[Rfam]
RNA: mir-223 microRNA precursor family
RNA sequence: GAAAGUUCAGUAAGUGUGGCACUGAGUGUAUUUGACAAGCUGAGUCCGACACUCAAUGAGACAGAGUGUCAGUUUGUCAAAUACCCCAAGUGAGGCACCAUCUCUC
Numbered sequence: 001g002a003a004a005g006u007u008c009a010g011u012a013a014g015u016g017u018g019g020c021a022c023u024g025a026g027u028g029u030a031u032u033u034g035a036c037a038a039g040c041u042g043a044g045u046c047c048g049a050c051a052c053u054c055a056a057u058g059a060g061a062c063a064g065a066g067u068g069u070c071a072g073u074u075u076g077u078c079a080a081a082u083a084c085c086c087c088a089a090g091u092g093a094g095g096c097a098c099c100a101u102c103u104c105u106c
Base pairs, nucleotide, nucleotide: 020092021091022090023089026086028084029083030082031081032080033079034078035077036076037075038074039073040072041071048070049069050068051067053065054064